[Rfam]
RNA sequence: AGAACAUUCGGAUCAUCGGUCUAUCGAGAAAUAACACCCACUGGGUGGAAGGUCUUCCCUUUGUCGU
Numbered sequence: 001a002g003a004a005c006a007u008u009c010g011g012a013u014c015a016u017c018g019g020u021c022u023a024u025c026g027a028g029a030a031a032u033a034a035c036a037c038c039c040a041c042u043g044g045g046u047g048g049a050a051g052g053u054c055u056u057c058c059c060u061u062u063g064u065c066g067u
Base pairs, nucleotide, nucleotide: 004064005063006062010058011057012056015053016052017051020049021048022047023046024045025044027042028041
Description
The record is a 67-nucleotide sequence from Bombyx mori, which matches "mir-2774 microRNA precursor family" in Rfam. Rfam links the family to the GO terms RISC complex and miRNA-mediated post-transcriptional gene silencing. Taxonomically the source falls in Bombyx (Eukaryota, Allotriocarida, Lepidoptera, Obtectomera). It scores 72 bits against the family's covariance model.